[Rfam]
Record summary: Shown here is an 84-nucleotide RNA sequence from Cicer arietinum, a member of the family "Small nucleolar RNA snoR14". Its Rfam clan is "SNORD110 clan". The base pairs follow the family's consensus structure. For this family Rfam cites "Multiple snoRNA gene clusters from Arabidopsis" (Brown et al., RNA, 2001). The source organism's lineage runs through Eukaryota, Viridiplantae, Euphyllophyta, Gunneridae and Cicer. A search with the family's covariance model found it, with a score of 98 bits.

Nucleotides: 084
Stems, first nucleotide, its partner, number of pairs: 001084004
Number, partner (000 for none) and nucleotide at each position: 001084g002083c003082g004081a005000a006000g007000u008000g009000a010000u011000g012000a013000u014000a015000g016000a017000a018000a019000u020000u021000c022000a023000u024000u025000u026000g027000u028000c029000u030000g031000u032000c033000a034000a035000u036000c037000c038000u039000c040000u041000g042000a043000u044000a045000u046000u047000u048000u049000u050000u051000g052000a053000u054000g055000u056000a057000u058000u059000u060000a061000u062000g063000a064000a065000u066000c067000c068000c069000g070000a071000c072000a073000g074000g075000u076000u077000c078000u079000g080000a081004u082003c083002g084001u